[Rfam]
RNA sequence: GUAAUAGAAUAGGUGACUCAAGGGUGGUCGGCAUACAUCCCCAAAAGAAAGGGGGUGGUGCUGAUGACAGUAUUCGAAGCAUUGAUGUUUGCAGUCGCAUUCGCAACAUUGAUCAGAGGCAUACUGUCGUUUAACCAAAAAAAAUAAUCCACCCUUGAGUUAGAGGCUCAGGUGGAUUAUCCCGAUUUUGCCGAUCCCCCUUGAAGGGAACCGUUCUAUUACUCGACCGUAGAUGUUACAGCAUCUGCG
Numbered sequence: 001g002u003a004a005u006a007g008a009a010u011a012g013g014u015g016a017c018u019c020a021a022g023g024g025u026g027g028u029c030g031g032c033a034u035a036c037a038u039c040c041c042c043a044a045a046a047g048a049a050a051g052g053g054g055g056u057g058g059u060g061c062u063g064a065u066g067a068c069a070g071u072a073u074u075c076g077a078a079g080c081a082u083u084g085a086u087g088u089u090u091g092c093a094g095u096c097g098c099a100u101u102c103g104c105a106a107c108a109u110u111g112a113u114c115a116g117a118g119g120c121a122u123a124c125u126g127u128c129g130u131u132u133a134a135c136c137a138a139a140a141a142a143a144a145u146a147a148u149c150c151a152c153c154c155u156u157g158a159g160u161u162a163g164a165g166g167c168u169c170a171g172g173u174g175g176a177u178u179a180u181c182c183c184g185a186u187u188u189u190g191c192c193g194a195u196c197c198c199c200c201u202u203g204a205a206g207g208g209a210a211c212c213g214u215u216c217u218a219u220u221a222c223u224c225g226a227c228c229g230u231a232g233a234u235g236u237u238a239c240a241g242c243a244u245c246u247g248c249g
Stems, first nucleotide, its partner, number of pairs: 001222005007216003010194001012192004017159008026149003036057002039055004066128007103120002195209004228249009